[Rfam]
RNA sequence: GCUGGGUGCGGCGGCACACACCUGUAGUCCCAGCUACUCGUAAGACUGAGCCUGCCAGGUCGCUUGAGCCCAGGAGCUCUGGGCUGCAGUGCACUAUGCCGAGCGGGUGUCCGUGUAAAGGCUGGCAUCAAUAUGGUGAGCCUCGGGGAGCUGGGGCACACCAGGUGACUAAUGAGGGGUGAACUGGCCCAGGUCAGAGAGGGAGCAGGUCAAAGCUCCCAUGCCGGUCAGUAGCGGGAUCAUGCCUGUGAAUAGCCACUGCAGCAUAGCCUGAGCAACACAGAGAGAUGCGGGUUCUA
Numbered sequence: 001g002c003u004g005g006g007u008g009c010g011g012c013g014g015c016a017c018a019c020a021c022c023u024g025u026a027g028u029c030c031c032a033g034c035u036a037c038u039c040g041u042a043a044g045a046c047u048g049a050g051c052c053u054g055c056c057a058g059g060u061c062g063c064u065u066g067a068g069c070c071c072a073g074g075a076g077c078u079c080u081g082g083g084c085u086g087c088a089g090u091g092c093a094c095u096a097u098g099c100c101g102a103g104c105g106g107g108u109g110u111c112c113g114u115g116u117a118a119a120g121g122c123u124g125g126c127a128u129c130a131a132u133a134u135g136g137u138g139a140g141c142c143u144c145g146g147g148g149a150g151c152u153g154g155g156g157c158a159c160a161c162c163a164g165g166u167g168a169c170u171a172a173u174g175a176g177g178g179g180u181g182a183a184c185u186g187g188c189c190c191a192g193g194u195c196a197g198a199g200a201g202g203g204a205g206c207a208g209g210u211c212a213a214a215g216c217u218c219c220c221a222u223g224c225c226g227g228u229c230a231g232u233a234g235c236g237g238g239a240u241c242a243u244g245c246c247u248g249u250g251a252a253u254a255g256c257c258a259c260u261g262c263a264g265c266a267u268a269g270c271c272u273g274a275g276c277a278a279c280a281c282a283g284a285g286a287g288a289u290g291c292g293g294g295u296u297c298u299a
Stems, first nucleotide, its partner, number of pairs: 001046001002044002004023005010017001028042001030040001048297008060286002063283002068276002071273004079269003083265009094255004099250001103249008111238002114236003118232001120229009129167001131166002134163005140157007176219005185212005194203002
RNA: Metazoan signal recognition particle RNA
Organism: Amazona collaria